[Rfam]
RNA sequence: UCUCGAUAAAGGCAAAGCUGAUGAAAAUCAGUGACGCAAAGCUACAGGGGCUAAGGCACGUUUGUGCUAUGCCAGCCAGUUACCGAA
Numbered sequence: 001u002c003u004c005g006a007u008a009a010a011g012g013c014a015a016a017g018c019u020g021a022u023g024a025a026a027a028u029c030a031g032u033g034a035c036g037c038a039a040a041g042c043u044a045c046a047g048g049g050g051c052u053a054a055g056g057c058a059c060g061u062u063u064g065u066g067c068u069a070u071g072c073c074a075g076c077c078a079g080u081u082a083c084c085g086a087a
Stems, first nucleotide, its partner, number of pairs: 012037002017032006040081004047077002049073003056067004
The family of this 87-nucleotide RNA sequence from Neobacillus piezotolerans is "c-di-GMP-I riboswitch aptamer". A search with the family's covariance model found it, with a score of 87 bits. The family's consensus secondary structure is taken from published work. Taxonomically the source falls in Neobacillus (Bacteria, Bacillati, Bacilli, Bacillaceae).